Record summary: Rfam assigns this 129-nucleotide RNA sequence from Aeromicrobium marinum to the family "FMN riboswitch aptamer (RFN element)". The RFN element is a highly conserved domain that is found frequently in the 5'-untranslated regions of prokaryotic mRNAs that encode for flavin mononucleotide (FMN) biosynthesis and transport proteins.
RNA sequence: CGCGUGCUCCGGGGUCGGUGCAAUUCCGAACCGGCGGUGACAGUCCGCGACCCGAACCCCUCCGGGGGUGAGGUUGAACCGGUGGAACUCCGGUACCGACGGUGAAAGUCCGGAUGAGAGGCGCACGCC
Numbered sequence: 001c002g003c004g005u006g007c008u009c010c011g012g013g014g015u016c017g018g019u020g021c022a023a024u025u026c027c028g029a030a031c032c033g034g035c036g037g038u039g040a041c042a043g044u045c046c047g048c049g050a051c052c053c054g055a056a057c058c059c060c061u062c063c064g065g066g067g068g069u070g071a072g073g074u075u076g077a078a079c080c081g082g083u084g085g086a087a088c089u090c091c092g093g094u095a096c097c098g099a100c101g102g103u104g105a106a107a108g109u110c111c112g113g114a115u116g117a118g119a120g121g122c123g124c125a126c127g128c129c
Stems, first nucleotide, its partner, number of pairs: 003127005009121002016028003030109002032098002034048004043096002052073002078094005100112003